[Rfam]
RNA: Fluoride riboswitch aptamer (crcB RNA motif)
Organism: Acinetobacter brisouii
RNA sequence: ACCUGAUCAGGAGAUGGCAUUCCUCCUGUAACAAACCGCCAUAUCGGCUAAUGAUGCCUACGUCACC
Numbered sequence: 001a002c003c004u005g006a007u008c009a010g011g012a013g014a015u016g017g018c019a020u021u022c023c024u025c026c027u028g029u030a031a032c033a034a035a036c037c038g039c040c041a042u043a044u045c046g047g048c049u050a051a052u053g054a055u056g057c058c059u060a061c062g063u064c065a066c067c
Base pairs, nucleotide, nucleotide: 010026011025012024013023016058017057018056019055020054021053038048039047040046